[Rfam]
mir-9195 microRNA precursor family: an 87-nucleotide RNA sequence from Pipistrellus kuhlii. The base pairs follow the family's consensus structure, which was predicted with RNAalifold. The match comes from Rfam's covariance-model search (91 bits). The organism belongs to Pipistrellus, within Eukaryota. Its family is annotated with miRNA-mediated post-transcriptional gene silencing and RISC complex in the Gene Ontology.

RNA sequence: AGAGGCCCUCUGCGGCUGGGGUGGAAUGCUUGCCUUAUUGCUGUGGCAACAAAGCAAGGAUUCUGCCAGGCUGCUCACACUGCCCAU
Number, nucleotide and partner (000 for none) at each position: 001a000002g000003a000004g084005g083006c082007c000008c000009u000010c000011u000012g074013c073014g072015g071016c070017u069018g000019g000020g067021g066022u065023g064024g063025a062026a061027u060028g000029c058030u057031u056032g055033c054034c000035u000036u000037a000038u049039u048040g047041c046042u000043g000044u000045g000046g041047c040048a039049a038050c000051a000052a000053a000054g033055c032056a031057a030058g029059g000060a027061u026062u025063c024064u023065g022066c021067c020068a000069g017070g016071c015072u014073g013074c012075u000076c000077a000078c000079a000080c000081u000082g006083c005084c004085c000086a000087u000